[Rfam]
RNA sequence: GGCCGGCGGCCGCCGAGUCCGCGCUGAGCGGAGCCGGGGACCCACGCAUCCGGGGUGAAUUCGCCGCACGGCGAUAGGGCGCCUCCUGGCCCGAACCCGUCAGCUAACCCGGUAGGCGGCCAAGGAGAGGAGAA
Numbered sequence: 001g002g003c004c005g006g007c008g009g010c011c012g013c014c015g016a017g018u019c020c021g022c023g024c025u026g027a028g029c030g031g032a033g034c035c036g037g038g039g040a041c042c043c044a045c046g047c048a049u050c051c052g053g054g055g056u057g058a059a060u061u062c063g064c065c066g067c068a069c070g071g072c073g074a075u076a077g078g079g080c081g082c083c084u085c086c087u088g089g090c091c092c093g094a095a096c097c098c099g100u101c102a103g104c105u106a107a108c109c110c111g112g113u114a115g116g117c118g119g120c121c122a123a124g125g126a127g128a129g130g131a132g133a134a
Stems, first nucleotide, its partner, number of pairs: 011118004018032005033113006043052001053098003061074004077092004
Shown here is a 134-nucleotide RNA from Thermomonospora echinospora, a member of the family "c-di-AMP riboswitch aptamer (ydaO/yuaA leader)".
The organism belongs to Thermomonospora, within Bacteria.
On this family, see Barrick et al., Proc Natl Acad Sci U S A 2004: "New RNA motifs suggest an expanded scope for riboswitches in bacterial genetic control".